Selenocysteine insertion sequence 1: a 63-nucleotide sequence from Pteropus alecto. A search with the family's covariance model found it, with a score of 36 bits. The family's consensus secondary structure is taken from published work. Rfam 15.1 lists 3,793 matches to the family in 721 species.
RNA sequence: UGGUGCCCAUGACAGCCUGCCCGGAAACCAGCCCCCUGGUGGGGCAGACCCGAGAACUCAGCA
Numbered sequence: 001u002g003g004u005g006c007c008c009a010u011g012a013c014a015g016c017c018u019g020c021c022c023g024g025a026a027a028c029c030a031g032c033c034c035c036c037u038g039g040u041g042g043g044g045c046a047g048a049c050c051c052g053a054g055a056a057c058u059c060a061g062c063a
Stems, first nucleotide, its partner, number of pairs: 001063002004060002015049001017047006029038003